The record is a 106-nucleotide RNA from Streptomyces taklimakanensis, which matches "Streptomyces RNA 5676" in Rfam. The pairing is the family consensus, mapped onto this sequence. The family's RNA type in Rfam is small RNA. Rfam describes the family as follows. Identified by deep sequencing of transcriptome at the end of exponential growth phase. Appears longer on northern blot than sequencing transcript. This indicates processing step. Streptomyces specific. A reference for the family is Vockenhuber et al. (2011), "Deep sequencing-based identification of small non-coding RNAs in Streptomyces coelicolor", RNA Biol.
[Rfam]
RNA sequence: GGAAGAACGCGGUGUCCCGUCCGCGGAUGACCGUGGACGGUACCGAGUCGGCGAUUCCCCUUCUCCGGCCCGGUCGUGCCCUCGCGCACACUCCUCACCGAUCGGA
Numbered sequence: 001g002g003a004a005g006a007a008c009g010c011g012g013u014g015u016c017c018c019g020u021c022c023g024c025g026g027a028u029g030a031c032c033g034u035g036g037a038c039g040g041u042a043c044c045g046a047g048u049c050g051g052c053g054a055u056u057c058c059c060c061u062u063c064u065c066c067g068g069c070c071c072g073g074u075c076g077u078g079c080c081c082u083c084g085c086g087c088a089c090a091c092u093c094c095u096c097a098c099c100g101a102u103c104g105g106a
Stems, first nucleotide, its partner, number of pairs: 001096002005093002017040010042074004047069001049067003053063002076089004098105002